RNA: Eukaryotic large subunit ribosomal RNA, nucleotides 655 to 938
Organism: Plenodomus tracheiphilus
RNA sequence: GAGUUUAAUAUCUAUAUAAGUAUAUAGGUAUUAAGCCUAAAUAUAUAAUAAAAGUAAAUAGAGGUAAGAACUCUUUUAAGGUAUACUAUUAACUAAUCUUAAUAUCUUUAGAAAGAUUUAAGUAAGAGUAUAGAUAUUAGGACCUAAAAUAUAGUAAACUAUACUUUAAUAGAGUAAAGCUAGAGGAAACUCUAGUAGAGGCUUAUAAUAGUUCUAAUAUAUAAAUUAAUUAUAAAAUUUAGGUAUAGGGGUAAAAGACUAAUUAAACUAUCUAGUAGCUAGUU
Numbered sequence: 001g002a003g004u005u006u007a008a009u010a011u012c013u014a015u016a017u018a019a020g021u022a023u024a025u026a027g028g029u030a031u032u033a034a035g036c037c038u039a040a041a042u043a044u045a046u047a048a049u050a051a052a053a054g055u056a057a058a059u060a061g062a063g064g065u066a067a068g069a070a071c072u073c074u075u076u077u078a079a080g081g082u083a084u085a086c087u088a089u090u091a092a093c094u095a096a097u098c099u100u101a102a103u104a105u106c107u108u109u110a111g112a113a114a115g116a117u118u119u120a121a122g123u124a125a126g127a128g129u130a131u132a133g134a135u136a137u138u139a140g141g142a143c144c145u146a147a148a149a150u151a152u153a154g155u156a157a158a159c160u161a162u163a164c165u166u167u168a169a170u171a172g173a174g175u176a177a178a179g180c181u182a183g184a185g186g187a188a189a190c191u192c193u194a195g196u197a198g199a200g201g202c203u204u205a206u207a208a209u210a211g212u213u214c215u216a217a218u219a220u221a222u223a224a225a226u227u228a229a230u231u232a233u234a235a236a237a238u239u240u241a242g243g244u245a246u247a248g249g250g251g252u253a254a255a256a257g258a259c260u261a262a263u264u265a266a267a268c269u270a271u272c273u274a275g276u277a278g279c280u281a282g283u284u
Base pairs, nucleotide, nucleotide: 005140006139007138008137009136010135011134012133013132014131015130016129017128020044021043022042025039026038027037028036029035048055049054063090064089065088066087070082071081072080092123093122094120095119096118097116098115099114103110104109143282151271152270153269154268155267159248160247161246162245163244164243165242166241168239169238170236172204173203174202175201179196180195181194182193183192184191185190208233209232210231211230213229216227217226250260251259252258